This 59-nucleotide sequence from Spirodela intermedia belongs to the Rfam family "Small nucleolar RNA U49". The family has 5 seed sequences and 340 matches in Rfam 15.1.
RNA sequence: UCCCGGUGAAGAAGCAAGACCAUUGAUAGGAAGUGCCGUAUGACACUUGACGCGGAUUU
Numbered sequence: 001u002c003c004c005g006g007u008g009a010a011g012a013a014g015c016a017a018g019a020c021c022a023u024u025g026a027u028a029g030g031a032a033g034u035g036c037c038g039u040a041u042g043a044c045a046c047u048u049g050a051c052g053c054g055g056a057u058u059u
Stems, first nucleotide, its partner, number of pairs: 014053002031048005
The family is grouped with related families in Rfam's "SNORD49 clan".